RNA sequence: GCGGAGGGCUGGAUGGCCGCUUGGGUCGCAAGACCCGGGAGGAAAGUCCGGACUCCACAAGGCAAGGGUGCCGGGUAACGCCCGGCGGGGGCAACCCCAGGGAAAGCGCCACAGAGAACAGACCGCCCCUGCAUGCAGGGGUAAGGGUGAAACGGUGGAGUAAGAGACCACCGCGGGACUGGCAACAGGACCGGCAUGGCAAGCCCCACCCGGAGCAAUGCCGAAUAGGGGCCUUGCGCGGGGCAUGAUCGGGCAACCGAUAUCGCCGCAGGUACGUCUUGACCCAGAGGCCCGGGUUGGCAGCUAGAGGCGCGUCGGUAACGGCGCGUUCAGAUGAAUGGUCAUCCAGAGGGGGCAACCCCUUGGACAGAAUCCGGCUUACAGGCCCUCCGCGCAU
Dot-bracket structure: ((((((((((((((((((.((((((((....))))))))....[[[.[[[[[((((....[[.[.((((((((((.....)))))(((((....)))).)((...(((((............(((((((((....)))))))..)).......(((((.........)))))((((..(((....)))..))).)..)))..)))))))))))))...((((......((((((....................................((..(.].]])..))..)))))).....)))).......((((((((....))))))))..........)))))))..........................]]]]]]]].).))))))))))....